[Rfam]
RNA: MIR6217 microRNA precursor family
Organism: Miscanthus lutarioriparius
RNA sequence: UGGCUACAAAAUAAUUUAUUCUUUAGCCACUUUGAGUUACGAUAAUUACUAUGUUAAUUUACGAGAUUAUAGUAACUCCUUACUAAGUGGUUUACUAUAACGUUCUAGUAAAUAUCCCCAUGUGUUAUAAUAACCCAACUAUCGUAAAUAUGUAUUGACAUUAUCGUAAAUUAGUAUAUAAAAUUAUCGUAAAUGGAGGUGGCUACAGAAUAUACUCUCCA
Numbered sequence: 001u002g003g004c005u006a007c008a009a010a011a012u013a014a015u016u017u018a019u020u021c022u023u024u025a026g027c028c029a030c031u032u033u034g035a036g037u038u039a040c041g042a043u044a045a046u047u048a049c050u051a052u053g054u055u056a057a058u059u060u061a062c063g064a065g066a067u068u069a070u071a072g073u074a075a076c077u078c079c080u081u082a083c084u085a086a087g088u089g090g091u092u093u094a095c096u097a098u099a100a101c102g103u104u105c106u107a108g109u110a111a112a113u114a115u116c117c118c119c120a121u122g123u124g125u126u127a128u129a130a131u132a133a134c135c136c137a138a139c140u141a142u143c144g145u146a147a148a149u150a151u152g153u154a155u156u157g158a159c160a161u162u163a164u165c166g167u168a169a170a171u172u173a174g175u176a177u178a179u180a181a182a183a184u185u186a187u188c189g190u191a192a193a194u195g196g197a198g199g200u201g202g203c204u205a206c207a208g209a210a211u212a213u214a215c216u217c218u219c220c221a
Base pairs, nucleotide, nucleotide: 011218013216015214017212018211019210020209021208022207024205025204026203027202028201029200030199031198032197033196037192038191039190040189041188042187043186044185045184046183047182050178051177052176053175054174055173056172057171058170059169060168061167062166065165066164067163069161070160074155080147081146082145083144087142088141089140090139091138092137093132094131096129097128098127099126100125101124102123103122108116